Shown here is a 79-nucleotide sequence from Pteruthius melanotis, a member of the family "mir-458 microRNA precursor family". Rfam links the family to the GO terms RISC complex and miRNA-mediated post-transcriptional gene silencing. A search with the family's covariance model found it, with a score of 81 bits. For this family Rfam cites "A microRNA catalog of the developing chicken embryo identified by a deep sequencing approach" (Glazov et al., Genome Res, 2008). Pairs were carried over by alignment from the consensus structure, which was predicted with RNAalifold.
RNA sequence: GUGCCGAUGGCAGCGCCAUUUCCAGAGCUGUAAAACACUGUCGUGGUCAUAGCUCUGGGAAUGGUACUGCCAUAAGUAC
Numbered sequence: 001g002u003g004c005c006g007a008u009g010g011c012a013g014c015g016c017c018a019u020u021u022c023c024a025g026a027g028c029u030g031u032a033a034a035a036c037a038c039u040g041u042c043g044u045g046g047u048c049a050u051a052g053c054u055c056u057g058g059g060a061a062u063g064g065u066a067c068u069g070c071c072a073u074a075a076g077u078a079c
Base pairs, nucleotide, nucleotide: 002078003077004076007073008072009071011069012068013067015065016064017063018062019061020060021059024056025055026054027053028052029051030050031049